[Rfam]
About this RNA:
Bacillaceae-1 RNA: a 67-nucleotide sequence from Bacillus pumilus. It is annotated as a small RNA. The organism belongs to Bacillus pumilus, within Bacteria.

RNA sequence: AGGAGAUGAUCACAUGCUAAGUUCGCUACAUCGUGUAGCAACGCAUGUGUGAUAUGCAUCCUGCAUA
Numbered sequence: 001a002g003g004a005g006a007u008g009a010u011c012a013c014a015u016g017c018u019a020a021g022u023u024c025g026c027u028a029c030a031u032c033g034u035g036u037a038g039c040a041a042c043g044c045a046u047g048u049g050u051g052a053u054a055u056g057c058a059u060c061c062u063g064c065a066u067a
Base pairs, nucleotide, nucleotide: 011049012048013047014046015045016044017043025039026038027037028036029035054066055065056064057063